The family of this 358-nucleotide sequence from Raphidocelis subcapitata is "Group I catalytic intron". Taxonomically the source falls in Raphidocelis (Eukaryota, Chlorophyceae, Sphaeropleales, Selenastraceae). The match comes from Rfam's covariance-model search (96 bits).
[Rfam]
RNA sequence: AUGGCUCAUUAAAUCAGUUAUAGUUUAUUUGAUGGUACCUCUACACGGAUAACCGUAUAAUACAUGCGGAAGAAAGGAACUCGCGUUCCUAGUAGCCUUGCAAAAGGCUGCGACAUUGCCAAAUUGCCUGGAAACCCUGUUAAUCUCACCAGUACCGCUGCUGUCCCGAAAGGGCCACGCAGCACCUUGGGCAACGCCCGAGGGUGUGGUAAAAACCUGGAGAGUAGGGGCGAUGGGCAGCCAAGUCCUGUUGGUAGCCAAUACCUACGGAUGCAGUUCACAGACUAAAUGGUAAUGGGUUCUUGAGUUUGACUACACAAGAGCUUAAGAUAUAGUCGGUCCCUGCCAAAAGGCAGAC
Numbered sequence: 001a002u003g004g005c006u007c008a009u010u011a012a013a014u015c016a017g018u019u020a021u022a023g024u025u026u027a028u029u030u031g032a033u034g035g036u037a038c039c040u041c042u043a044c045a046c047g048g049a050u051a052a053c054c055g056u057a058u059a060a061u062a063c064a065u066g067c068g069g070a071a072g073a074a075a076g077g078a079a080c081u082c083g084c085g086u087u088c089c090u091a092g093u094a095g096c097c098u099u100g101c102a103a104a105a106g107g108c109u110g111c112g113a114c115a116u117u118g119c120c121a122a123a124u125u126g127c128c129u130g131g132a133a134a135c136c137c138u139g140u141u142a143a144u145c146u147c148a149c150c151a152g153u154a155c156c157g158c159u160g161c162u163g164u165c166c167c168g169a170a171a172g173g174g175c176c177a178c179g180c181a182g183c184a185c186c187u188u189g190g191g192c193a194a195c196g197c198c199c200g201a202g203g204g205u206g207u208g209g210u211a212a213a214a215a216c217c218u219g220g221a222g223a224g225u226a227g228g229g230g231c232g233a234u235g236g237g238c239a240g241c242c243a244a245g246u247c248c249u250g251u252u253g254g255u256a257g258c259c260a261a262u263a264c265c266u267a268c269g270g271a272u273g274c275a276g277u278u279c280a281c282a283g284a285c286u287a288a289a290u291g292g293u294a295a296u297g298g299g300u301u302c303u304u305g306a307g308u309u310u311g312a313c314u315a316c317a318c319a320a321g322a323g324c325u326u327a328a329g330a331u332a333u334a335g336u337c338g339g340u341c342c343c344u345g346c347c348a349a350a351a352g353g354c355a356g357a358c
Base pairs, nucleotide, nucleotide: 013019114297115296116295117294118293120291121290125239126238127237128236129235130234135230136229137228138227240277241276245272246271247270248269253265254264255263256262281338283337284336285335286334287333299324300323301322302321303320304319305318307316343356344355345354346353347352